[Rfam]
RNA sequence: AGAGCGGACCGGGCCCCUCUGGCGCGGGUUUCCCCUCGGGAACCUUCGUGAUGUCGGACCGCAUCG
Numbered sequence: 001a002g003a004g005c006g007g008a009c010c011g012g013g014c015c016c017c018u019c020u021g022g023c024g025c026g027g028g029u030u031u032c033c034c035c036u037c038g039g040g041a042a043c044c045u046u047c048g049u050g051a052u053g054u055c056g057g058a059c060c061g062c063a064u065c066g
Base pairs, nucleotide, nucleotide: 006060007059009057010056011055012054022049023048024047026045027044028043029042030041031040032039
This 66-nucleotide RNA sequence from Sphingobium subterraneum belongs to the Rfam family "terC RNA".
The family has 129 seed sequences and 1,112 matches in Rfam 15.1.
Taxonomically the source falls in Sphingobium (Bacteria, Pseudomonadati, Pseudomonadota, Sphingomonadales).
It is annotated as a cis-regulatory element.